[Rfam]
Notes
The family of this 179-nucleotide sequence from Sporolactobacillus shoreae is "Lysine riboswitch aptamer". The source organism's lineage runs through Bacteria, Bacilli, Caryophanales, Sporolactobacillaceae and Sporolactobacillus. Pairs were carried over by alignment from the consensus structure, which is taken from published work.
RNA sequence: AAGCAGAUAAGAGGAGCAGGGCGAAAAAGUAAGGGACGGGAGCCAGGAAGAGCGAGGAUCGUUCCCUAAAGGUCAACCUGCCGAAGCGGUCGCUUUUUCCGGAAACGACGCGCUGGGCUGCAGCUGAACAGGUUGCAGACUGUCACUGCAUGAACUUGCGGUGGAGCACUUCUCGGGCU
Number, nucleotide and partner (000 for none) at each position: 001a000002a000003g000004c000005a000006g174007a173008u000009a171010a170011g169012a000013g000014g000015a000016g081017c080018a079019g078020g077021g000022c000023g074024a073025a000026a000027a000028a000029g000030u000031a000032a000033g065034g064035g063036a062037c061038g060039g059040g000041a000042g000043c000044c000045a000046g000047g000048a000049a000050g000051a000052g000053c000054g000055a000056g000057g000058a000059u039060c038061g037062u036063u035064c034065c033066c000067u000068a000069a000070a000071g000072g000073u024074c023075a000076a000077c020078c019079u018080g017081c016082c000083g000084a000085a114086g113087c112088g111089g109090u108091c107092g106093c000094u104095u103096u102097u000098u000099c000100c000101g000102g096103a095104a094105a000106c092107g091108a090109c089110g000111c088112g087113c086114u085115g141116g140117g000118c138119u137120g136121c135122a134123g133124c132125u131126g000127a000128a000129c000130a000131g125132g124133u123134u122135g121136c120137a119138g118139a000140c116141u115142g000143u164144c163145a162146c161147u160148g159149c158150a000151u000152g000153a000154a000155c000156u000157u000158g149159c148160g147161g146162u145163g144164g143165a000166g000167c000168a000169c011170u010171u009172c000173u007174c006175g000176g000177g000178c000179u000